Rfam assigns this 141-nucleotide sequence from Biostraticola tofi to the family "Yersinia sRNA 155(RyfD)". About the family: The sRNA was identified by and is confirmed to have a stable secondary structure by using genome-wide structure probing at different temperatures. The function is unknown. The pairing is the family consensus, mapped onto this sequence. The family's RNA type in Rfam is small RNA.

[Rfam]
RNA sequence: CAAGACGGUCCAGGAUGGGUAACAAAUAUCAUCCAACUUAUUGGCGAAAUAUCCUUGAAUUUUAAAUAAACGACCUUAUUUAAUCUCCAGAGUAGCAAUUUUGACCAAUGUGGGAGGAGUUAUGCGUCUGGAUCGUCUUAC
Numbered sequence: 001c002a003a004g005a006c007g008g009u010c011c012a013g014g015a016u017g018g019g020u021a022a023c024a025a026a027u028a029u030c031a032u033c034c035a036a037c038u039u040a041u042u043g044g045c046g047a048a049a050u051a052u053c054c055u056u057g058a059a060u061u062u063u064a065a066a067u068a069a070a071c072g073a074c075c076u077u078a079u080u081u082a083a084u085c086u087c088c089a090g091a092g093u094a095g096c097a098a099u100u101u102u103g104a105c106c107a108a109u110g111u112g113g114g115a116g117g118a119g120u121u122a123u124g125c126g127u128c129u130g131g132a133u134c135g136u137c138u139u140a141c
Stems, first nucleotide, its partner, number of pairs: 002139011014128004019123001021121003025042004031038001055066002058063001069080002072077001084117005092111003
Dot-bracket structure: .(((((((((((.((((.(.(((.((((..(......)))))............((.(....).))..((.(....).))...(((((...(((..............))).))))).))).).)))))))))))))))..